RNA: Lysine riboswitch aptamer
Organism: Halobacillus andaensis
RNA sequence: CGGUGAGGUAGAGGCGCAGGUUUCAUUAGUAUUCAGUGGGAGCGGGACAGCUAAGAUCACAUGAAGAAAGGGGAGACCUGCCGAAGUUUAUUUGAGUCGUCAGCUCUUAUAAGCUGGUAUAUGUCUAAAUAAGAGAUAUACUGUCAUGCAAGCUUUUUAGGUGCAUGGUGCGCUACUGAUCGA
Number, nucleotide and partner (000 for none) at each position: 001c000002g000003g000004u000005g000006a000007g177008g176009u175010a174011g173012a000013g000014g000015c000016g081017c080018a079019g078020g077021u076022u074023u073024c072025a000026u000027u000028a000029g000030u000031a000032u065033u064034c063035a062036g060037u059038g058039g057040g000041a000042g000043c000044g000045g000046g000047a000048c000049a000050g000051c000052u000053a000054a000055g000056a000057u039058c038059a037060c036061a000062u035063g034064a033065a032066g000067a000068a000069a000070g000071g000072g024073g023074a022075g000076a021077c020078c019079u018080g017081c016082c000083g000084a000085a115086g114087u113088u112089u111090a110091u109092u000093u000094g106095a105096g104097u000098c000099g000100u000101c000102a000103g000104c096105u095106c094107u000108u000109a091110u090111a089112a088113g087114c086115u085116g142117g141118u140119a139120u138121a137122u136123g000124u134125c133126u132127a000128a000129a000130u000131a000132a126133g125134a124135g000136a122137u121138a120139u119140a118141c117142u116143g000144u168145c167146a166147u165148g164149c163150a162151a000152g000153c000154u000155u000156u000157u000158u000159a000160g000161g000162u150163g149164c148165a147166u146167g145168g144169u000170g000171c000172g000173c011174u010175a009176c008177u007178g000179a000180u000181c000182g000183a000